Shown here is a 222-nucleotide sequence from Nostoc sp. PCC 7120 = FACHB-418, a member of the family "HNH endonuclease-associated RNA and ORF (HEARO) RNA". Rfam's curators put it in the seed alignment. By type it is a non-coding RNA gene. The source organism's lineage runs through Bacteria, Bacillati, Cyanobacteriota, Nostocales and Nostoc.
[Rfam]
RNA sequence: GUAAACUACCCACCACGGAUUGCUAAAAGCAAUAUAGUGGGGGCUUUCAAAGCCCAGAGUUUACCCGACUAAGUGUUUCGCGCACUACGAUUUUAAGGUCAUCUUACCUGGGAAUGCGUAGCCAGUUCCCAGCACUAGGGCUAAUAGUUAAACAGGUUGAAUGGGUUAAGCCAGUGCUGUUAGCGUAAAAAGCCUUUAAAUCAUUGUCUAGGCUAACAUUAC
Number, nucleotide and partner (000 for none) at each position: 001g064002u063003a062004a061005a060006c059007u058008a000009c000010c043011c042012a000013c040014c039015a000016c000017g000018g000019a033020u032021u031022g030023c029024u000025a000026a000027a000028a000029g023030c022031a021032a020033u019034a000035u000036a000037g000038u000039g014040g013041g000042g011043g010044c052045u051046u050047u000048c000049a000050a046051a045052g044053c000054c000055c000056a000057g000058a007059g006060u005061u004062u003063a002064c001065c000066c000067g208068a207069c206070u000071a204072a086073g085074u084075g083076u082077u000078u000079c000080g000081c000082g076083c075084a074085c073086u072087a000088c000089g202090a201091u200092u199093u198094u000095a196096a195097g194098g193099u192100c000101a000102u000103c000104u138105u137106a000107c000108c132109u131110g130111g129112g128113a127114a126115u125116g000117c000118g000119u215120a214121g213122c212123c211124a000125g115126u114127u113128c112129c111130c110131a109132g108133c000134a000135c000136u000137a105138g104139g000140g184141c183142u182143a181144a180145u179146a178147g177148u176149u000150a000151a000152a175153c174154a000155g172156g171157u170158u169159g000160a167161a166162u000163g000164g000165g000166u161167u160168a000169a158170g157171c156172c155173a000174g153175u152176g148177c147178u146179g145180u144181u143182a142183g141184c140185g000186u000187a000188a000189a000190a000191a000192g099193c098194c097195u096196u095197u000198a093199a092200a091201u090202c089203a000204u071205u000206g069207u068208c067209u000210a000211g123212g122213c121214u120215a119216a000217c000218a000219u000220u000221a000222c000